Rfam assigns this 104-nucleotide RNA from Nitrosospira multiformis to the family "Vibrio RNA AS9".
[Rfam]
RNA sequence: CUGGCGGCAACGUUCCUCCAUCAACGUCAGGCAGAUCAGGCCGCGUCCGUACGUUGCCAUGAAGUUGAUGGCUGCCGGUGUAAUGAAAUCCGCCGCCAGAACCA
Numbered sequence: 001c002u003g004g005c006g007g008c009a010a011c012g013u014u015c016c017u018c019c020a021u022c023a024a025c026g027u028c029a030g031g032c033a034g035a036u037c038a039g040g041c042c043g044c045g046u047c048c049g050u051a052c053g054u055u056g057c058c059a060u061g062a063a064g065u066u067g068a069u070g071g072c073u074g075c076c077g078g079u080g081u082a083a084u085g086a087a088a089u090c091c092g093c094c095g096c097c098a099g100a101a102c103c104a
Stems, first nucleotide, its partner, number of pairs: 003058006010027005035050002039047003066104002069101001071096002074093002077090001079087001
NCBI's taxonomy places the organism under Bacteria, Pseudomonadota, Betaproteobacteria, Nitrosomonadales, Nitrosospira multiformis. From the family's description: Identified by direct cloning an parallel sequencing experiments with 5S/tRNA depletion. Confirmed by Northern blot. The family's RNA type in Rfam is antisense RNA. For this family Rfam cites "Experimental discovery of sRNAs in Vibrio cholerae by direct cloning, 5S/tRNA depletion and parallel sequencing" (Liu et al., Nucleic Acids Res, 2009). It scores 55 bits against the family's covariance model.